[Rfam]
Nucleotides: 209
Base pairs, nucleotide, nucleotide: 015091016090017089019087020086097207098206099205100204118202119201120200121199123196124195132158133157134156135155136154141150142149143148161179162178163177164176165175166174167173168172
Number, partner (000 for none) and nucleotide at each position: 001000a002000c003000c004000u005000a006000u007000c008000c009000g010000a011000u012000u013000c014000c015091u016090a017089u018000u019087u020086c021000c022000g023000c024000a025000c026000a027000a028000u029000g030000c031000u032000u033000c034000c035000u036000u037000u038000c039000c040000a041000u042000a043000c044000c045000c046000a047000u048000u049000c050000c051000c052000c053000u054000u055000c056000c057000u058000g059000c060000u061000c062000u063000c064000a065000a066000c067000c068000u069000c070000u071000u072000c073000c074000a075000c076000u077000c078000u079000u080000u081000c082000c083000u084000g085000g086020g087019a088000u089017g090016u091015a092000u093000a094000a095000c096000c097207u098206c099205c100204u101000g102000g103000u104000u105000g106000a107000u108000c109000u110000c111000c112000c113000u114000a115000c116000u117000a118202g119201a120200g121199g122000a123196g124195g125000a126000g127000u128000u129000u130000u131000a132158g133157u134156c135155g136154g137000u138000a139000g140000g141150c142149g143148c144000u145000u146000c147000g148143g149142c150141g151000a152000a153000u154136c155135c156134g157133a158132c159000a160000a161179u162178a163177c164176c165175c166174c167173c168172u169000u170000u171000u172168a173167g174166g175165g176164g177163g178162u179161g180000u181000c182000u183000u184000u185000u186000g187000a188000a189000g190000a191000u192000u193000u194000c195124c196123c197000c198000u199121c200120c201119u202118c203000g204100a205099g206098g207097a208000a209000a